[Rfam]
RNA sequence: CCCCUUUCUUUCCCGUAAGCCGCACCCUAUAUUCAAAAUGUCACUCACGUGACUAUGGCAAUAAAUGGCCUCUGUAAUAAGCCUAUCGGACCCGGGGGCGGUACCCGGCGCCUCCACCAUAAGAACCGUCUUCUCCAUCAGAGAGUUGGCGAUUUUUAUGAUGGGGGCGAAAUAGGAUCGACGAGGGUGUAAAAAUUGUGUUUUUGCUCGGCAUUGUACCACCGUUAUCGGGCUAAUUUUGUAGUUGCAAACGACAACUAUGCAGGGUCACGCCUCGCUGCUGCUUAAGCAGUGCGGUAACCCACUGAACUCCUAGUCGGUUUGCUCGGCUAGGCGGGGUUCGGAGGCACCUGGCAACAGAAGCCUCCACU
Number, nucleotide and partner (000 for none) at each position: 001c000002c000003c000004c000005u000006u000007u000008c000009u000010u000011u000012c000013c000014c000015g000016u000017a000018a000019g000020c000021c000022g000023c000024a000025c000026c000027c000028u000029a000030u000031a000032u000033u000034c000035a000036a000037a000038a000039u000040g053041u052042c051043a050044c049045u000046c000047a000048c000049g044050u043051g042052a041053c040054u000055a000056u000057g208058g207059c206060a205061a204062u000063a000064a000065a000066u000067g201068g000069c000070c198071u000072c000073u195074g000075u000076a000077a000078u000079a000080a000081g000082c187083c186084u185085a000086u184087c183088g182089g000090a000091c000092c108093c107094g106095g105096g104097g000098g000099c000100g000101g000102u000103a000104c096105c095106c094107g093108g092109c169110g168111c167112c166113u165114c164115c163116a000117c000118c000119a000120u000121a000122a000123g000124a000125a000126c000127c000128g000129u000130c000131u000132u000133c000134u000135c000136c000137a000138u000139c000140a000141g000142a000143g000144a000145g000146u000147u000148g000149g000150c000151g000152a000153u000154u000155u000156u000157u000158a000159u000160g000161a000162u000163g115164g114165g113166g112167g111168c110169g109170a000171a000172a000173u000174a000175g000176g000177a000178u000179c000180g000181a000182c088183g087184a086185g084186g083187g082188u000189g000190u000191a000192a000193a000194a000195a073196u000197u000198g070199u000200g000201u067202u000203u000204u061205u060206g059207c058208u057209c224210g223211g222212c000213a000214u235215u000216g233217u000218a000219c231220c230221a000222c211223c210224g209225u000226u000227a000228u000229c000230g220231g219232g000233c216234u000235a214236a000237u000238u000239u000240u000241g000242u000243a000244g000245u000246u000247g000248c000249a000250a000251a000252c000253g000254a000255c000256a000257a000258c000259u000260a000261u000262g000263c000264a000265g000266g000267g000268u000269c000270a000271c000272g000273c000274c000275u000276c000277g000278c000279u000280g000281c000282u000283g000284c000285u000286u000287a000288a000289g000290c000291a000292g000293u000294g000295c000296g000297g000298u000299a000300a000301c000302c000303c000304a000305c000306u000307g000308a000309a000310c000311u000312c000313c000314u000315a000316g000317u000318c000319g000320g000321u000322u000323u000324g000325c000326u000327c000328g000329g000330c000331u000332a000333g000334g000335c000336g000337g352338g351339g350340u349341u000342c000343g368344g367345a366346g365347g364348c363349a340350c339351c338352u337353g000354g000355c000356a000357a000358c000359a000360g000361a000362a000363g348364c347365c346366u345367c344368c343369a000370c000371u000

Rfam assigns this 371-nucleotide RNA sequence from Cohaesibacter gelatinilyticus to the family "Alphaproteobacteria transfer-messenger RNA". From the family's description: Bacterial tmRNA, also known as 10Sa RNA or SsrA, is named for its dual tRNA and mRNA-like properties. On this family, see Laslett et al., Nucleic Acids Res 2002: "BRUCE: a program for the detection of transfer-messenger RNA genes in nucleotide sequences". It is annotated as a non-coding RNA gene.